This 131-nucleotide RNA sequence from Ligilactobacillus equi belongs to the Rfam family "Enterococcus sRNA 68 (Lacto-3 RNA)". Lineage of the source: Bacteria > Bacillati > Bacilli > Lactobacillaceae > Ligilactobacillus equi.
RNA sequence: UGCGAUGAGUCGAGAAAAACCAGACAAAGAAAUUUGUUUUGCUGCGGCAACUAGUGGUUAAUUUCGAAUGGGGACACAUGAUGCUACCGGAUUUUGUAGCGUGUCUGACGAACUUGGCCUAUGUGGAAAUU
Numbered sequence: 001u002g003c004g005a006u007g008a009g010u011c012g013a014g015a016a017a018a019a020c021c022a023g024a025c026a027a028a029g030a031a032a033u034u035u036g037u038u039u040u041g042c043u044g045c046g047g048c049a050a051c052u053a054g055u056g057g058u059u060a061a062u063u064u065c066g067a068a069u070g071g072g073g074a075c076a077c078a079u080g081a082u083g084c085u086a087c088c089g090g091a092u093u094u095u096g097u098a099g100c101g102u103g104u105c106u107g108a109c110g111a112a113c114u115u116g117g118c119c120u121a122u123g124u125g126g127a128a129a130u131u
Stems, first nucleotide, its partner, number of pairs: 018059005023038006039050004073105005083100005121130002
Dot-bracket structure: .................(((((((((((....))))))((((....))))....))))).............(((((.....(((((........))))))))))...............((......)).

Rfam classes the family as a small RNA.